Shown here is a 103-nucleotide sequence from Exaiptasia diaphana, a member of the family "Small nucleolar RNA SNORD16". The family is grouped with related families in Rfam's "SNORD16 clan". The literature on the family includes a 1993 paper in EMBO J by Fragapane et al., "A novel small nucleolar RNA (U16) is encoded inside a ribosomal protein intron and originates by processing of the pre-mRNA".

[Rfam]
RNA sequence: GGAAAUGAUGAUGUAAUUUGCGUCAUAGGGUGUGGUCAGUGACGGUUGCCUGCCGUCAUAUACUGCUACAUAUCUGUGAAGACAGCAUACUCAUUACUGAUCC
Number, nucleotide and partner (000 for none) at each position: 001g103002g102003a101004a000005a000006u000007g000008a000009u000010g000011a000012u000013g000014u000015a000016a000017u000018u000019u000020g000021c081022g000023u079024c078025a000026u000027a000028g000029g000030g071031u070032g069033u068034g067035g000036u000037c000038a000039g063040u062041g057042a056043c055044g054045g053046u000047u000048g000049c000050c000051u000052g000053c045054c044055g043056u042057c041058a000059u000060a000061u000062a040063c039064u000065g000066c000067u034068a033069c032070a031071u030072a000073u000074c000075u000076g000077u000078g024079a023080a000081g021082a000083c000084a000085g000086c000087a000088u000089a000090c000091u000092c000093a000094u000095u000096a000097c000098u000099g000100a000101u003102c002103c001
Notes: Gene Ontology terms of the family: nucleolus and RNA processing. The base pairs follow the family's consensus structure, which was predicted with PFOLD. Taxonomically the source falls in Exaiptasia (Eukaryota, Metazoa, Anthozoa, Actiniaria).